RNA sequence: GCCCUAUGAAGAAGAAAUCUCAUUGUAGCAAGUGCCGGAUGACACUUCACACACUAUGUUCUGU
Numbered sequence: 001g002c003c004c005u006a007u008g009a010a011g012a013a014g015a016a017a018u019c020u021c022a023u024u025g026u027a028g029c030a031a032g033u034g035c036c037g038g039a040u041g042a043c044a045c046u047u048c049a050c051a052c053a054c055u056a057u058g059u060u061c062u063g064u
Base pairs, nucleotide, nucleotide: 015057030047031046032045033044034043